[Rfam]
RNA sequence: GUUUGGAGUUGGGUCUUUGCGGGCGAGAUGAGGUUUUCUUUCCAACUGGCCUACAAAGUCCCAGUUCUCGGC
Numbered sequence: 001g002u003u004u005g006g007a008g009u010u011g012g013g014u015c016u017u018u019g020c021g022g023g024c025g026a027g028a029u030g031a032g033g034u035u036u037u038c039u040u041u042c043c044a045a046c047u048g049g050c051c052u053a054c055a056a057a058g059u060c061c062c063a064g065u066u067c068u069c070g071g072c
Base pairs, nucleotide, nucleotide: 003070005068006067007066008065010063011062012061013060015058016057017056018055019054021052022051023050024049026047027046029044030043
RNA: mir-193 microRNA precursor family
Organism: Geotrypetes seraphini